[Rfam]
RNA sequence: CGAGUGAUUCGCGGCUAAGGAACUAGGCAAAAUGACCCCGUAACUUAGGGAUAAGGGGAGCCCCGCUCAGGCGGGGCCGCAGAGAAAUGAUCCAGGCGACUGUUUAUCAAAAACACAGGGCUCUGCUAAACCGAAAGGUGAUGUAUAGGGCCUGACACCUGCCCGGUGCUGGAAGGUUAAGGGGGGAGCUUAUCUUCGGAGAAGGCUUGAACUGAAGCCCCAGUAAACGGCGGCCGUAACUAUAACGGUCCUAAGGUAGCGAAAUUCCUUGUCGGGUAAGUUCCGACCUGCACGAAUGGUGUAACGAUCUGGAUACUGUCUCGGCCGCGAGCUCG
Numbered sequence: 001c002g003a004g005u006g007a008u009u010c011g012c013g014g015c016u017a018a019g020g021a022a023c024u025a026g027g028c029a030a031a032a033u034g035a036c037c038c039c040g041u042a043a044c045u046u047a048g049g050g051a052u053a054a055g056g057g058g059a060g061c062c063c064c065g066c067u068c069a070g071g072c073g074g075g076g077c078c079g080c081a082g083a084g085a086a087a088u089g090a091u092c093c094a095g096g097c098g099a100c101u102g103u104u105u106a107u108c109a110a111a112a113a114c115a116c117a118g119g120g121c122u123c124u125g126c127u128a129a130a131c132c133g134a135a136a137g138g139u140g141a142u143g144u145a146u147a148g149g150g151c152c153u154g155a156c157a158c159c160u161g162c163c164c165g166g167u168g169c170u171g172g173a174a175g176g177u178u179a180a181g182g183g184g185g186g187a188g189c190u191u192a193u194c195u196u197c198g199g200a201g202a203a204g205g206c207u208u209g210a211a212c213u214g215a216a217g218c219c220c221c222a223g224u225a226a227a228c229g230g231c232g233g234c235c236g237u238a239a240c241u242a243u244a245a246c247g248g249u250c251c252u253a254a255g256g257u258a259g260c261g262a263a264a265u266u267c268c269u270u271g272u273c274g275g276g277u278a279a280g281u282u283c284c285g286a287c288c289u290g291c292a293c294g295a296a297u298g299g300u301g302u303a304a305c306g307a308u309c310u311g312g313a314u315a316c317u318g319u320c321u322c323g324g325c326c327g328c329g330a331g332c333u334c335g
Base pairs, nucleotide, nucleotide: 001335002334003333004332009330010329011328012327013326014325015324016323018321019320020319036058037057038056039055044049060077061076062075063074064073065072066071078082090314091313092312093311094310095309096308097306098305101115102114103113118153119152120151121150122149123148124147125146126143130139131138132137156301157300158299159298161231162230163229166228167227168224169223170222171221172220175219176218177217181213182212186208187207188206189205190204193200194199232250233249234248235247236246237245251255261288271287272286273285274284275283276282